[Rfam]
RNA sequence: ACAACAGUAUAGGCUUGCAAGGGCGGUCGGCUAAUCUCCCGGAAGGGAGGUGAUGCCCAUGACAGUAUUCGAGGGACUUAUACUUAUGAUAACGUUCGGUUCGCUGAUCGUUGCGAUACUGUCCUUUAAACGGAAAUAGACCGCCCCCCGCAAAGGAAUCGGUCUAUUUCUGCCGUACUUCCUAUAAGCCUACCGCCCUUAAAAGCGGCUGUUGUGGGGAGUCGUGUUAGCCGCACGGCUC
Numbered sequence: 001a002c003a004a005c006a007g008u009a010u011a012g013g014c015u016u017g018c019a020a021g022g023g024c025g026g027u028c029g030g031c032u033a034a035u036c037u038c039c040c041g042g043a044a045g046g047g048a049g050g051u052g053a054u055g056c057c058c059a060u061g062a063c064a065g066u067a068u069u070c071g072a073g074g075g076a077c078u079u080a081u082a083c084u085u086a087u088g089a090u091a092a093c094g095u096u097c098g099g100u101u102c103g104c105u106g107a108u109c110g111u112u113g114c115g116a117u118a119c120u121g122u123c124c125u126u127u128a129a130a131c132g133g134a135a136a137u138a139g140a141c142c143g144c145c146c147c148c149c150g151c152a153a154a155g156g157a158a159u160c161g162g163u164c165u166a167u168u169u170c171u172g173c174c175g176u177a178c179u180u181c182c183u184a185u186a187a188g189c190c191u192a193c194c195g196c197c198c199u200u201a202a203a204a205g206c207g208g209c210u211g212u213u214g215u216g217g218g219g220a221g222u223c224g225u226g227u228u229a230g231c232c233g234c235a236c237g238g239c240u241c
Stems, first nucleotide, its partner, number of pairs: 001215004006210002010192006016152003021147003025142004032053001034051001036049005061123007076087001099114002193208004219241009
Record summary:
The family of this 241-nucleotide sequence from Cohnella sp. CIP 111063 is "BsrG". The organism belongs to Cohnella, within Bacteria. bsrE, bsrG and bsrH pair through intermolecular interactions with antisense sRNAs. They form type I toxin/antitoxin system that includes an mRNA encoding for a short, toxic peptide (bsrE, bsrG and bsrH) and an antitoxin that is comprised of an antisense RNA. bsrG encodes a 39-amino-acid toxin, and the 180 nucleotide antisense sRNA called SR4 acts as the antitoxin (they overlap by 123 nucleotides). SR4 interaction with the 3'UTR of bsrG RNA promotes bsrG degradation and inhibits its translation. BsrG interferes with cell envelope biosynthesis, causes membrane invaginations and delocalisation of the cell wall synthesis and initiates autolysis. bsrE RNA encodes 30 amino-acid toxin peptide. Its antitoxin gene, SR5 overlaps by 112 nucleotides at the 3' end of bsrE. SR5 also overlaps bsrG from nucleotide 163 to 52 (Rfam overlap check). The antitoxin SR5 promotes bsrE degradation but unlike SR4 it does not directly inhibits toxin mRNA translation. The family's RNA type in Rfam is small RNA. A search with the family's covariance model found it, with a score of 77 bits. Rfam links the family to the GO terms autolysis and toxin activity. A reference for the family is Jahn et al. (2012), "BsrG/SR4 from Bacillus subtilis--the first temperature-dependent type I toxin-antitoxin system", Mol Microbiol. Rfam 15.1 lists 614 matches to the family in 343 species.